[Rfam]
RNA sequence: AGCUGUGGCCGCAACUGGCGAGGGUGGAGGACCACCGGGGAGCGGCCGGGGACAGGCCCUACAGGCGUCGCCCGCCUGGGCGCCGGGG
Number, nucleotide and partner (000 for none) at each position: 001a000002g000003c051004u050005g000006u048007g047008g046009c045010c044011g043012c042013a000014a000015c039016u038017g076018g075019c074020g073021a000022g000023g000024g035025u034026g033027g032028a000029g000030g000031a000032c027033c026034a025035c024036c000037g000038g016039g015040g000041a000042g012043c011044g010045g009046c008047c007048g006049g000050g004051g003052a000053c000054a000055g000056g000057c000058c000059c000060u000061a000062c000063a000064g000065g083066c082067g081068u080069c079070g000071c000072c000073c020074g019075c018076c017077u000078g000079g069080g068081c067082g066083c065084c000085g000086g000087g000088g000

A member of the RNA family "ZMP/ZTP riboswitch aptamer (pfl RNA motif)" from Schaalia canis, 88 nucleotides long. The match comes from Rfam's covariance-model search (50 bits).